This 230-nucleotide RNA from Miscanthus lutarioriparius belongs to the Rfam family "MIR6217 microRNA precursor family". Gene Ontology terms of the family: miRNA-mediated post-transcriptional gene silencing and RISC complex. A search with the family's covariance model found it, with a score of 144 bits. The family has 2 seed sequences and 2,266 matches in Rfam 15.1.
RNA sequence: UGGCUAUAAAAUAACUUAUUACAGAGUUACUUUGAGUUACGAUAAUUACUAUGUUAAUUUACUUAGAGAUUAUAGUUACUCCUUCUUGAGUGGUUUACUAUAACGUUAUGGUAAAUAUCCCCAUGUGUUAUAGUAACCCAACUAUCGUAAAUAUGUAUUGAUAUUAUCGUAAAUUAGUAUAUAAAAUUAUUGUAAAUGGAGGUGGAUACGAAUAACUUAUUUUGUAACGG
Numbered sequence: 001u002g003g004c005u006a007u008a009a010a011a012u013a014a015c016u017u018a019u020u021a022c023a024g025a026g027u028u029a030c031u032u033u034g035a036g037u038u039a040c041g042a043u044a045a046u047u048a049c050u051a052u053g054u055u056a057a058u059u060u061a062c063u064u065a066g067a068g069a070u071u072a073u074a075g076u077u078a079c080u081c082c083u084u085c086u087u088g089a090g091u092g093g094u095u096u097a098c099u100a101u102a103a104c105g106u107u108a109u110g111g112u113a114a115a116u117a118u119c120c121c122c123a124u125g126u127g128u129u130a131u132a133g134u135a136a137c138c139c140a141a142c143u144a145u146c147g148u149a150a151a152u153a154u155g156u157a158u159u160g161a162u163a164u165u166a167u168c169g170u171a172a173a174u175u176a177g178u179a180u181a182u183a184a185a186a187u188u189a190u191u192g193u194a195a196a197u198g199g200a201g202g203u204g205g206a207u208a209c210g211a212a213u214a215a216c217u218u219a220u221u222u223u224g225u226a227a228c229g230g
Base pairs, nucleotide, nucleotide: 001230003228005226006225007224008223009222010221011220012219013218014217016215017214018213019212020211022210025207027205028204029203030202031201032200033199037195038194039193040192041191042190043189044188045187046186047185050181051180052179053178054177055176056175057174058173059172060171061170062169068168069167070166072164073163074162083150084149086147090145091144092143093142094141095140096135097134098133099132100131101130102129103128104127105126106125110120111119